Small nucleolar RNA snoR8a: a 94-nucleotide RNA from Theobroma cacao.
RNA sequence: AGGGUUAGCGAUGAUUAUAAAACUAAUUUCUCAUUCUAAGUUACUUAAUUUGAACAUGACAAAUCUCUUAUUAUAACCAUAGAAUUUUAGCUCC
Numbered sequence: 001a002g003g004g005u006u007a008g009c010g011a012u013g014a015u016u017a018u019a020a021a022a023c024u025a026a027u028u029u030c031u032c033a034u035u036c037u038a039a040g041u042u043a044c045u046u047a048a049u050u051u052g053a054a055c056a057u058g059a060c061a062a063a064u065c066u067c068u069u070a071u072u073a074u075a076a077c078c079a080u081a082g083a084a085u086u087u088u089a090g091c092u093c094c
Stems, first nucleotide, its partner, number of pairs: 003094002007092002
For this family Rfam cites "Multiple snoRNA gene clusters from Arabidopsis" (Brown et al., RNA, 2001). Pairs were carried over by alignment from the consensus structure, which was predicted with WAR. NCBI's taxonomy places the organism under Eukaryota, Embryophyta, eudicotyledons, rosids, Theobroma.